[Rfam]
RNA sequence: GGCCUGCCAGCGGGAGAGAGCCCUCAGGGGCCGCCGAAGGGGAAAUCGCCCGAAAUCUCUCAGGCAAAAGAACCGCCUGCAGGUC
Numbered sequence: 001g002g003c004c005u006g007c008c009a010g011c012g013g014g015a016g017a018g019a020g021c022c023c024u025c026a027g028g029g030g031c032c033g034c035c036g037a038a039g040g041g042g043a044a045a046u047c048g049c050c051c052g053a054a055a056u057c058u059c060u061c062a063g064g065c066a067a068a069a070g071a072a073c074c075g076c077c078u079g080c081a082g083g084u085c
Base pairs, nucleotide, nucleotide: 006080007079010076011075012074013073020031021030022029023028033065034064035063036061037060040059041058042057046053047052
RNA: Glycine riboswitch aptamer